Shown here is a 65-nucleotide sequence from Nothoprocta perdicaria, a member of the family "Selenocysteine insertion sequence 1". Lineage of the source: Eukaryota > Vertebrata > Amniota > Saurischia > Nothoprocta. Pairs were carried over by alignment from the consensus structure, which is taken from published work.
RNA sequence: GUGUGCUUAUGAAGACCGCUAACAAAAGAGUAUCUAACUCAGUUGGCGUUCAGAUGUUGCCACAC
Numbered sequence: 001g002u003g004u005g006c007u008u009a010u011g012a013a014g015a016c017c018g019c020u021a022a023c024a025a026a027a028g029a030g031u032a033u034c035u036a037a038c039u040c041a042g043u044u045g046g047c048g049u050u051c052a053g054a055u056g057u058u059g060c061c062a063c064a065c
Stems, first nucleotide, its partner, number of pairs: 001065005014051002017048007029039003